A member of the RNA family "Small nucleolar RNA SNORD116" from Muntiacus reevesi, 96 nucleotides long. Rfam classes the family as a C/D-box small nucleolar RNA. A reference for the family is Cavaille et al. (2000), "Identification of brain-specific and imprinted small nucleolar RNA genes exhibiting an unusual genomic organization", Proc Natl Acad Sci U S A. It scores 53 bits against the family's covariance model.
[Rfam]
RNA sequence: GGAGGGAAGUCACAUCUGUUAAAAAGUCCUUUCCUUGGAAAAUCUGAACAACAUGAGUGAGAACUCACUACCGUCUCCUCAUCGAAACUGAGGUCC
Numbered sequence: 001g002g003a004g005g006g007a008a009g010u011c012a013c014a015u016c017u018g019u020u021a022a023a024a025a026g027u028c029c030u031u032u033c034c035u036u037g038g039a040a041a042a043u044c045u046g047a048a049c050a051a052c053a054u055g056a057g058u059g060a061g062a063a064c065u066c067a068c069u070a071c072c073g074u075c076u077c078c079u080c081a082u083c084g085a086a087a088c089u090g091a092g093g094u095c096c
Stems, first nucleotide, its partner, number of pairs: 001096003029059001031057003035051003